[Rfam]
RNA: Eukaryotic small subunit ribosomal RNA, nucleotides 25 to 621
Organism: Smittium mucronatum
RNA sequence: CAUAUGCUUGUCUCAAAGAUUAAGCCAUGCAUGUCUAAGUAUAAACUAUUCUAUACAAGUGAAACUGCGAAUGGCUCAUUAUAUCAGCUAUAAUUUAUUUGAUGAUACCUUUUUACUACUUGGAUAACCGUGGUAAUUCUAGAGCUAAUACAUGCUGUAAACAACUCCAACUUUUGGGAAGGAGGGCAUUUAUUAGAUACAAAACCAAUGGGGGCAACCUCUUAAUUGGCGAUUCAUAAUAACUAAGCAUAUCGCAUUUAUGCACUCUUUCGGGGGUGUGGCGAAGGAUCAUUCAAAUUUCUGCCCUAUCAACUGUCGAUGGUAGUAUAGAGGACUACCAUGGUGGCAACGGGUAACGGGGAAUUAGGGUUCGAUUCCGGAGAGGGAGCCUGAGAAACGGCUACCACUUCUAAGGAAGGCAGCAGGCGCGCAAAUUACCCAAUCCUGAUACAGGGAGGUAGUGACAAUAAAUAACAAUCCAGGGCUAAUUUUUAGUCUUGGAAUUGUAAUGAGUACAAUCUAAACCUCUUAACGAGGAACAAUUGGAGGGCAAGUCUGGUGCCAGCAGCCGCGGUAAUUCCAGCUCCAAUAGCGUAU
Dot-bracket structure: .(((((((..(.(...((.....(((.(((..((...(((....((............))...)))))......(((.......(((..((..((....((((...............(.((.....(..(((.....)))..)......)).)..........((((..((....))..)))).....((((((.........(((....(((....))).....))).......)))))).........((((.....(((((((......)))))))))))...))))...))))..))).(((....(((....((((((((.......)))))))))))......)))...((((((((....))))...))))))).((.(((..........))).)).((((....))))...)))))).).....(.(((...(((((...))))).)))).)....).).....(((((((((((((.....)))))))))).)))......(((.(...........)).)).........((((((.......((((.....((....)).......)))))))))).)))))))